[Rfam]
RNA sequence: CCGUCCAAGCGUUGCGUAGGCGUUGUGCACACUGUCUGGUAUAACCGUGUGUACCUCUCCUGCGUCACAUUUGGACGG
Numbered sequence: 001c002c003g004u005c006c007a008a009g010c011g012u013u014g015c016g017u018a019g020g021c022g023u024u025g026u027g028c029a030c031a032c033u034g035u036c037u038g039g040u041a042u043a044a045c046c047g048u049g050u051g052u053a054c055c056u057c058u059c060c061u062g063c064g065u066c067a068c069a070u071u072u073g074g075a076c077g078g
Base pairs, nucleotide, nucleotide: 003076004075005074006073007072009070014065015064016063017062019060020059022057025054026053027052028051029050030049031048032047